[Rfam]
RNA: mir-30 microRNA precursor family
Organism: Anguilla anguilla
RNA sequence: UCAGGAAGUGUAAACAUCCUACACUCUCAGCUGUGGCAGUCAGGAGGCUGGGAGCGGGGUGUUUGCGCUCCCUGG
Numbered sequence: 001u002c003a004g005g006a007a008g009u010g011u012a013a014a015c016a017u018c019c020u021a022c023a024c025u026c027u028c029a030g031c032u033g034u035g036g037c038a039g040u041c042a043g044g045a046g047g048c049u050g051g052g053a054g055c056g057g058g059g060u061g062u063u064u065g066c067g068c069u070c071c072c073u074g075g
Base pairs, nucleotide, nucleotide: 002074003073004072005071008068009067010066011065012064013063014062015061016060017059018058019057020056024054025053026052027051028050029049030048031047032046